[Rfam]
RNA sequence: CCGCGCUAAGCGGGGAGCUCGCCGUGCCCUGAACCCGCAAUCGGCGAUAGCGGGGCUGAACUCCCUGCCUGCGGGCUCGCCUUGUGGGGACGGGCUGACGCGCGGAGCGAGGAAGGCUGGGUCCUGCGCGGCGGCACAGGGUGAACCCCGCCAGGCCCGGAAGGGAGCAACGGUAAGCCCUCCCUGCCGCGCGCCGCAGGGGUGCCUGGCUGGAGCCACCGGCGUCGGUAACGCCUGGAAGGCGAGUUCAACGGUGGGGUGCGCGG
Numbered sequence: 001c002c003g004c005g006c007u008a009a010g011c012g013g014g015g016a017g018c019u020c021g022c023c024g025u026g027c028c029c030u031g032a033a034c035c036c037g038c039a040a041u042c043g044g045c046g047a048u049a050g051c052g053g054g055g056c057u058g059a060a061c062u063c064c065c066u067g068c069c070u071g072c073g074g075g076c077u078c079g080c081c082u083u084g085u086g087g088g089g090a091c092g093g094g095c096u097g098a099c100g101c102g103c104g105g106a107g108c109g110a111g112g113a114a115g116g117c118u119g120g121g122u123c124c125u126g127c128g129c130g131g132c133g134g135c136a137c138a139g140g141g142u143g144a145a146c147c148c149c150g151c152c153a154g155g156c157c158c159g160g161a162a163g164g165g166a167g168c169a170a171c172g173g174u175a176a177g178c179c180c181u182c183c184c185u186g187c188c189g190c191g192c193g194c195c196g197c198a199g200g201g202g203u204g205c206c207u208g209g210c211u212g213g214a215g216c217c218a219c220c221g222g223c224g225u226c227g228g229u230a231a232c233g234c235c236u237g238g239a240a241g242g243c244g245a246g247u248u249c250a251a252c253g254g255u256g257g258g259g260u261g262c263g264c265g266g
Stems, first nucleotide, its partner, number of pairs: 001266006009057003012030004017025002034054005063259007073249005079243005085237004093229001096227006104220002107216002115211008123200006129191002132189005138181005148173003156165003